[Rfam]
RNA sequence: AGACGUUCUCAGGGCGGGGUGGAAAUCCCUACCGGCGGUAAGCAUUGCGCAAGCAAAGUAAGCCCGCGAGCGCCUGCCUAGGCAGGGUCAAGCAGAUCCGGUGUGAAUCCGGAGCCGACGGUCAUAGUCCGGAUGGGAGAGAACGCGA
Numbered sequence: 001a002g003a004c005g006u007u008c009u010c011a012g013g014g015c016g017g018g019g020u021g022g023a024a025a026u027c028c029c030u031a032c033c034g035g036c037g038g039u040a041a042g043c044a045u046u047g048c049g050c051a052a053g054c055a056a057a058g059u060a061a062g063c064c065c066g067c068g069a070g071c072g073c074c075u076g077c078c079u080a081g082g083c084a085g086g087g088u089c090a091a092g093c094a095g096a097u098c099c100g101g102u103g104u105g106a107a108u109c110c111g112g113a114g115c116c117g118a119c120g121g122u123c124a125u126a127g128u129c130c131g132g133a134u135g136g137g138a139g140a141g142a143a144c145g146c147g148a
Stems, first nucleotide, its partner, number of pairs: 004145007017029003031128002033117002035067004062115002070093002097113005119131003